This 79-nucleotide sequence belongs to the Rfam family "Twister_sister_ribozyme". Rfam's curators put it in the seed alignment.

RNA sequence: AACUAGGGCAAGGUACAAUCCCGUGCAAGCCGGGAUCAGGGGUAGUGCGAUCUACCCCUGCUACGCUCAACCUACGUCU
Numbered sequence: 001a002a003c004u005a006g007g008g009c010a011a012g013g014u015a016c017a018a019u020c021c022c023g024u025g026c027a028a029g030c031c032g033g034g035a036u037c038a039g040g041g042g043u044a045g046u047g048c049g050a051u052c053u054a055c056c057c058c059u060g061c062u063a064c065g066c067u068c069a070a071c072c073u074a075c076g077u078c079u
Stems, first nucleotide, its partner, number of pairs: 004074004013064003016029001018036001020034003037060009